[Rfam]
The record is a 61-nucleotide RNA sequence from Chlorobium phaeobacteroides, which matches "Lnt RNA" in Rfam. Rfam's curators put it in the seed alignment.

RNA sequence: CAGGAAAUUUUUUGCUGGUAAUUCCUGUUAAAUAACAGCUUGAAACAAAUUUAAAUAAUAA
Numbered sequence: 001c002a003g004g005a006a007a008u009u010u011u012u013u014g015c016u017g018g019u020a021a022u023u024c025c026u027g028u029u030a031a032a033u034a035a036c037a038g039c040u041u042g043a044a045a046c047a048a049a050u051u052u053a054a055a056u057a058a059u060a061a
Stems, first nucleotide, its partner, number of pairs: 001027006

Taxonomically the source falls in Chlorobium phaeobacteroides (Bacteria, Chlorobiia, Chlorobiales, Chlorobiaceae). The family's consensus secondary structure is taken from published work. Rfam classes the family as a cis-regulatory element.